A member of the RNA family "mir-217 microRNA precursor family" from Perca fluviatilis, 93 nucleotides long.

Nucleotides: 093
Stems, first nucleotide, its partner, number of pairs: 023073005029067009039058003
Number, partner (000 for none) and nucleotide at each position: 001000g002000g003000u004000u005000u006000c007000c008000a009000g010000a011000u012000g013000u014000u015000g016000g017000u018000g019000a020000u021000a022000c023073u024072g025071c026070a027069u028000c029067a030066g031065g032064a033063a034062c035061u036060g037059a038000u039058c040057g041056g042000a043000g044000a045000g046000c047000g048000a049000u050000g051000a052000c053000a054000g055000g056041c057040c058039g059037u060036c061035a062034g063033u064032u065031c066030c067029u068000a069027a070026u071025g072024c073023g074000c075000u076000g077000c078000c079000c080000u081000c082000a083000g084000c085000a086000u087000c088000u089000a090000a091000a092000g093000a